This 106-nucleotide RNA from Listeria innocua belongs to the Rfam family "TPP riboswitch aptamer (THI element)". Rfam links the family to the GO term thiamine pyrophosphate binding. Taxonomically the source falls in Listeria (Bacteria, Bacillati, Bacilli, Listeriaceae). Rfam's curators put it in the seed alignment.
RNA sequence: AAGAAAAACUAGGGGGGCCGAUUCUGGCUGAGAUAGGAAGGUAAUGCUUUCUGACCCUUUGAACCUGUUUGUUAGUGCAAGCGUAGGGAAGUGAAUGUGAAAGUGA
Numbered sequence: 001a002a003g004a005a006a007a008a009c010u011a012g013g014g015g016g017g018c019c020g021a022u023u024c025u026g027g028c029u030g031a032g033a034u035a036g037g038a039a040g041g042u043a044a045u046g047c048u049u050u051c052u053g054a055c056c057c058u059u060u061g062a063a064c065c066u067g068u069u070u071g072u073u074a075g076u077g078c079a080a081g082c083g084u085a086g087g088g089a090a091g092u093g094a095a096u097g098u099g100a101a102a103g104u105g106a
Stems, first nucleotide, its partner, number of pairs: 008092003011058004017028004035052005064087004069080003
Dot-bracket structure: .......(((((((..((((....))))......(((((........)))))..)))).....((((.(((......)))...))))..)))..............